A member of the RNA family "Small nucleolar RNA SNORA73 family" from Poecilia formosa, 211 nucleotides long. The source organism's lineage runs through Eukaryota, Bilateria, Teleostei, Cyprinodontoidei and Poecilia. The literature on the family includes a 1996 paper in RNA by Enright et al., "5'ETS rRNA processing facilitated by four small RNAs: U14, E3, U17, and U3". Gene Ontology terms of the family: nucleolus and RNA processing. The base pairs follow the family's consensus structure, which is taken from published work. Clan: snR30-U17 clan.
RNA sequence: CCGACAUGGACACCUGGGGGCGUGGCCUCCAGCUCUGUCCUGGUGGCCAAUGGGAGCGCAGCUCUGCGCCGUGACGUCCAAUCCCGUUCCACGAUGUCGGACAGUAAGCUCCGCCCCCGGCUGCCGGCGUGGCGAGCGUCCUGCAUAUUCCUACGCCUUCCCAGAGUCCUUUGGGCCGUUACUGGGGAGACAAACCAUGCAGGACACAGAC
Numbered sequence: 001c002c003g004a005c006a007u008g009g010a011c012a013c014c015u016g017g018g019g020g021c022g023u024g025g026c027c028u029c030c031a032g033c034u035c036u037g038u039c040c041u042g043g044u045g046g047c048c049a050a051u052g053g054g055a056g057c058g059c060a061g062c063u064c065u066g067c068g069c070c071g072u073g074a075c076g077u078c079c080a081a082u083c084c085c086g087u088u089c090c091a092c093g094a095u096g097u098c099g100g101a102c103a104g105u106a107a108g109c110u111c112c113g114c115c116c117c118c119g120g121c122u123g124c125c126g127g128c129g130u131g132g133c134g135a136g137c138g139u140c141c142u143g144c145a146u147a148u149u150c151c152u153a154c155g156c157c158u159u160c161c162c163a164g165a166g167u168c169c170u171u172u173g174g175g176c177c178g179u180u181a182c183u184g185g186g187g188a189g190a191c192a193a194a195c196c197a198u199g200c201a202g203g204a205c206a207c208a209g210a211c
Base pairs, nucleotide, nucleotide: 001100002099003098004097005096006095007094008040009039010038011037012036014032015031016030018028019027020026021025043092044091045090046089052085053084054083055082056079058077059076061072062071140203141202142201143200144199145198146197157189158188159187160186161185162184166176167175168174169173
It is annotated as an H/ACA-box small nucleolar RNA.